[Rfam]
RNA sequence: GUUUUUCUGAUGAUAAGUUCAAUCUGAACAAAGUGCUGUUGAUUUACAACUUAAAAUUAAACCAAAAGGAUUCUGAUAAAAU
Number, nucleotide and partner (000 for none) at each position: 001g082002u081003u080004u000005u079006u000007c000008u000009g000010a000011u000012g000013a000014u000015a000016a000017g000018u000019u000020c000021a000022a000023u000024c000025u000026g000027a000028a000029c000030a000031a000032a000033g000034u000035g000036c000037u000038g000039u000040u000041g000042a000043u000044u000045u000046a000047c000048a000049a000050c000051u000052u000053a000054a000055a000056a000057u000058u000059a000060a000061a000062c000063c000064a000065a000066a000067a000068g000069g000070a000071u000072u000073c000074u000075g000076a000077u000078a000079a005080a003081a002082u001